[Rfam]
RNA sequence: CUGUUCUGCCGUACGUCUCUAAGGGCGUUUCCUCCCUAAACUUGGGCCGUGCCUCGCGCACGGCCCUUUUUUUUCGGCGAG
Numbered sequence: 001c002u003g004u005u006c007u008g009c010c011g012u013a014c015g016u017c018u019c020u021a022a023g024g025g026c027g028u029u030u031c032c033u034c035c036c037u038a039a040a041c042u043u044g045g046g047c048c049g050u051g052c053c054u055c056g057c058g059c060a061c062g063g064c065c066c067u068u069u070u071u072u073u074u075c076g077g078c079g080a081g
Base pairs, nucleotide, nucleotide: 001023044066045065046064047063048062049061050060051059052058

This 81-nucleotide sequence from Tistlia consotensis belongs to the Rfam family "Makes More Granules Regulator RNA (mmgR)". The pairing is the family consensus, mapped onto this sequence. The family is grouped with related families in Rfam's "suhB sRNA clan".